[Rfam]
RNA sequence: AGCCUGUGAUGAGCUGCCGAACUUCUGACACCUCGUAUGACCGCGGCGCUCGCGGUCUGAUUAUCCGCGCGAGGCUGAGGCUU
Numbered sequence: 001a002g003c004c005u006g007u008g009a010u011g012a013g014c015u016g017c018c019g020a021a022c023u024u025c026u027g028a029c030a031c032c033u034c035g036u037a038u039g040a041c042c043g044c045g046g047c048g049c050u051c052g053c054g055g056u057c058u059g060a061u062u063a064u065c066c067g068c069g070c071g072a073g074g075c076u077g078a079g080g081c082u083u
Stems, first nucleotide, its partner, number of pairs: 001082004043056002046053002

This 83-nucleotide sequence from Gulo gulo belongs to the Rfam family "Small nucleolar RNA SNORD60". On this family, see Galardi et al., Mol Cell Biol 2002: "Purified box C/D snoRNPs are able to reproduce site-specific 2'-O-methylation of target RNA in vitro". Rfam links the family to the GO terms RNA processing and nucleolus.